[Rfam]
Lysine riboswitch aptamer: a 182-nucleotide sequence from Clostridium intestinale. Rfam links the family to the GO term lysine biosynthetic process.

RNA sequence: AGGUGGGGUAGAGGCGCGGUAUUUAUUAGUCUUUAGAAGAGUUUGAGAAGCAAUGAUGCUAUGGAGAAGGAAAUAUCGCCGAAGUAAAUAAUAAUCUCAUUAUUAUUUGCUGGGUCUGUAGUUAAGAGCUGCAGGACUGUCUCAAUAAGCCACCCAGUUUAUUGAGUUGUGCUAUCUCAUUU
Numbered sequence: 001a002g003g004u005g006g007g008g009u010a011g012a013g014g015c016g017c018g019g020u021a022u023u024u025a026u027u028a029g030u031c032u033u034u035a036g037a038a039g040a041g042u043u044u045g046a047g048a049a050g051c052a053a054u055g056a057u058g059c060u061a062u063g064g065a066g067a068a069g070g071a072a073a074u075a076u077c078g079c080c081g082a083a084g085u086a087a088a089u090a091a092u093a094a095u096c097u098c099a100u101u102a103u104u105a106u107u108u109g110c111u112g113g114g115u116c117u118g119u120a121g122u123u124a125a126g127a128g129c130u131g132c133a134g135g136a137c138u139g140u141c142u143c144a145a146u147a148a149g150c151c152a153c154c155c156a157g158u159u160u161a162u163u164g165a166g167u168u169g170u171g172c173u174a175u176c177u178c179a180u181u182u
Stems, first nucleotide, its partner, number of pairs: 006177006016079009031064002034061003038057001083111012112138002115135008141166009
A search with the family's covariance model found it, with a score of 107 bits.